[Rfam]
The record is a 33-nucleotide sequence from Flavobacterium amnicola, which matches "DUF805b RNA" in Rfam.
RNA sequence: AACGAGGAAGCUGAAAAUCGAUUAGAGUAAGCA
Numbered sequence: 001a002a003c004g005a006g007g008a009a010g011c012u013g014a015a016a017a018u019c020g021a022u023u024a025g026a027g028u029a030a031g032c033a
Stems, first nucleotide, its partner, number of pairs: 003020003010032003
Record summary: The match comes from Rfam's covariance-model search (36 bits). The family's consensus secondary structure is taken from published work. The organism belongs to Flavobacterium, within Bacteria. The family's RNA type in Rfam is cis-regulatory element.